[Rfam]
RNA sequence: UGAAGAAAUUGUAGUUUCAGAGUUGGUGGAGCACUAGGGCGUAUUUGAGGAAAGUCCGAGCUCCGUAGGGCAGGGUGCUGGAUAACGUCCAGCGAGGGUGACCUCAGGGAAAGUGCCACAGAAAUGUAGACCGCCUGGUAUUUGCCAGGUAAGGAUGGAACGGUGCGGUAAGAGCGCACCAGCAAUCAGGUGACUGAUUGGCUAGGUAAACCCCACUUGGAGCAAGACCGAAUAGGGAAGGGAUGAAGCUGCCCGCUGAGCCUUCCGGGUUGCGUCGCUUGAGCUGUCAGGCAACUGGCAGCCUAGAUAAAUAAUCGUCACCGCGCUAGCGGAACAGAACUCGGCUUAUUGAUGACUCAUAAU
Numbered sequence: 001u002g003a004a005g006a007a008a009u010u011g012u013a014g015u016u017u018c019a020g021a022g023u024u025g026g027u028g029g030a031g032c033a034c035u036a037g038g039g040c041g042u043a044u045u046u047g048a049g050g051a052a053a054g055u056c057c058g059a060g061c062u063c064c065g066u067a068g069g070g071c072a073g074g075g076u077g078c079u080g081g082a083u084a085a086c087g088u089c090c091a092g093c094g095a096g097g098g099u100g101a102c103c104u105c106a107g108g109g110a111a112a113g114u115g116c117c118a119c120a121g122a123a124a125u126g127u128a129g130a131c132c133g134c135c136u137g138g139u140a141u142u143u144g145c146c147a148g149g150u151a152a153g154g155a156u157g158g159a160a161c162g163g164u165g166c167g168g169u170a171a172g173a174g175c176g177c178a179c180c181a182g183c184a185a186u187c188a189g190g191u192g193a194c195u196g197a198u199u200g201g202c203u204a205g206g207u208a209a210a211c212c213c214c215a216c217u218u219g220g221a222g223c224a225a226g227a228c229c230g231a232a233u234a235g236g237g238a239a240g241g242g243a244u245g246a247a248g249c250u251g252c253c254c255g256c257u258g259a260g261c262c263u264u265c266c267g268g269g270u271u272g273c274g275u276c277g278c279u280u281g282a283g284c285u286g287u288c289a290g291g292c293a294a295c296u297g298g299c300a301g302c303c304u305a306g307a308u309a310a311a312u313a314a315u316c317g318u319c320a321c322c323g324c325g326c327u328a329g330c331g332g333a334a335c336a337g338a339a340c341u342c343g344g345c346u347u348a349u350u351g352a353u354g355a356c357u358c359a360u361a362a363u
Base pairs, nucleotide, nucleotide: 052347053346054345056344057343058342059341060340061222062221063220064219068254069253070252071251073218074217075216076215077214078092079091080090081089082088093107094105095104096103097102108213109212113211114210115207116206117205131154132153133150134149135148136147137146138145139144162180163179164178165177166176167175182202183200184199185198186197187196188195189194226276227275228274229272236266237265238264239263240262241261247257248256249255283302284301285300286299287298288297289296290295
Annotation:
Rfam assigns this 363-nucleotide RNA sequence from Propionispora vibrioides to the family "Bacterial RNase P class A". Rfam classes the family as a ribozyme. A search with the family's covariance model found it, with a score of 266 bits.